[Rfam]
This 141-nucleotide RNA sequence from Oxyruncus cristatus belongs to the Rfam family "Small nucleolar RNA SNORA79". Taxonomically the source falls in Oxyruncus (Eukaryota, Eumetazoa, Dinosauria, Telluraves). The family's consensus secondary structure was predicted with RNAalifold. The match comes from Rfam's covariance-model search (58 bits). Rfam describes the family as follows. ACA65 (SNORA79) is a member of the H/ACA class of snoRNAs that guide the sites of modification of uridines to pseudouridines.
RNA sequence: CGACCCGCGUUCCCCCCGCCGCCGCCAGCCCGCGGGCGAGCGGGGUUUUAGCGGUGUCGCAGAGCAGAGGCGGCUUCUUCUUCACCCGGCGGAGCAGCGGAGGGUUCGGGGCUCCACCGGAUUUUGCGGGGUCGUACAAAG
Numbered sequence: 001c002g003a004c005c006c007g008c009g010u011u012c013c014c015c016c017c018g019c020c021g022c023c024g025c026c027a028g029c030c031c032g033c034g035g036g037c038g039a040g041c042g043g044g045g046u047u048u049u050a051g052c053g054g055u056g057u058c059g060c061a062g063a064g065c066a067g068a069g070g071c072g073g074c075u076u077c078u079u080c081u082u083c084a085c086c087c088g089g090c091g092g093a094g095c096a097g098c099g100g101a102g103g104g105u106u107c108g109g110g111g112c113u114c115c116a117c118c119g120g121a122u123u124u125u126g127c128g129g130g131g132u133c134g135u136a137c138a139a140a141g
Stems, first nucleotide, its partner, number of pairs: 001059004005054004014045005020038004072133006086120004091115005099107001